[Rfam]
RNA sequence: AGUUUAUAAAGAAGAAGGGAGAGAACAGGCUCUAUGAACUUCUGACAACCAUCUCUGUAAGAGAAAGGUGCCAAAACCUGCCUAAUUUUUAGGAGUUAUAAAUU
Dot-bracket structure: ((((((((....(((((...(((..[[[[)))......)))))(.((.((.(((.......)))..)))).)...(]]]](((((...)))))..)))))))))
A member of the RNA family "SAM riboswitch aptamer (S box leader)" from bacterium 336/3, 104 nucleotides long. Gene Ontology term of the family: regulation of gene expression. A search with the family's covariance model found it, with a score of 76 bits. Lineage of the source: Bacteria > Pseudomonadati. About the family: The SAM riboswitch is found upstream of a number of genes which code for proteins involved in methionine or cysteine biosynthesis in Gram-positive bacteria.